The family of this 360-nucleotide part of an RNA from Chondromyces crocatus is "Bacterial large subunit ribosomal RNA".
NCBI's taxonomy places the organism under Bacteria, Myxococcota, Polyangia, Polyangiaceae, Chondromyces.
The base pairs follow the family's consensus structure, which is taken from published work.
Rfam links the family to the GO terms structural constituent of ribosome and ribosome.
[Rfam]
Nucleotides: 360
Stems, first nucleotide, its partner, number of pairs: 001360004009355008018346003035059005044049001060102005077092001079090004103107001115339004120334002122331002126140003143178008151168001155164003181326004186256003191253002193249005200244003206238002212232004218225002257275006276280001286313001296312006
Number, partner (000 for none) and nucleotide at each position: 001360u002359g003358a004357g005000a006000g007000a008000a009355c010354c011353c012352u013351g014350g015349u016348u017000a018346a019345g020344g021000a022000a023000c024000u025000c026000g027000g028000c029000a030000a031000a032000a033000u034000g035059a036058c037057a038056c039055c040000g041000u042000a043000a044049c045000u046000u047000c048000g049044g050000g051000a052000g053000a054000a055039g056038g057037u058036g059035u060102g061101c062100c063099g064098c065000a066000c067000u068000g069000c070000g071000u072000g073000a074000a075000g076000a077092g078000g079090u080089u081088c082087g083000c084000c085000c086000u087082c088081g089080g090079a091000g092077c093000g094000u095000g096000g097000g098064g099063u100062g101061g102060u103107u104000g105000c106000a107103g108000a109000g110000a111000a112000a113000u114000g115339g116338g117337g118336g119000u120334u121333g122331u123330g124000a125000c126140u127139g128138u129000u130000u131000a132000c133000u134000a135000a136000a137000a138128a139127c140126a141000c142000a143178g144177g145176a146175c147174u148173c149172u150171g151168c152000g153000a154000a155164g156163u157162c158000g159000u160000a161000a162157g163156a164155c165000g166000a167000c168151g169000u170000a171150u172149a173148g174147g175146g176145u177144c178143u179000g180000a181326u182325g183324c184323c185000u186256g187255c188254c189000c190000g191253g192252u193249g194248c195247u196246g197245g198000a199000a200244g201243g202242u203000u204000a205000a206238g207237g208000g209000g210000a211000c212232g213231a214230g215229u216000c217000a218225g219224c220000g221000c222000a223000a224219g225218c226000g227000a228000a229215g230214c231213u232212c233000c234000g235000a236000a237207c238206c239000g240000a241000a242202g243201c244200c245197c246196c247195a248194g249193u250000a251000a252192a253191c254188g255187g256186c257275g258274g259273c260272c261271g262270u263000a264000a265000c266000u267000a268000u269000a270262a271261c272260g273259g274258u275257c276280c277000u278000a279000a280276g281000g282000u283000a284000g285000c286313g287000a288000a289000a290000u291000u292000c293000c294000u295000u296312g297311u298310c299309g300308g301307g302000u303000a304000a305000g306000u307301u308300c309299c310298g311297a312296c313286c314000u315000g316000c317000a318000c319000g320000a321000a322000u323184g324183g325182c326181a327000u328000a329000a330123c331122a332000a333121c334120a335000u336118c337117c338116c339115c340000g341000c342000u343000g344020u345019c346018u347000c348016g349015a350014c351013c352012a353011g354010g355009g356000a357004c358003u359002c360001a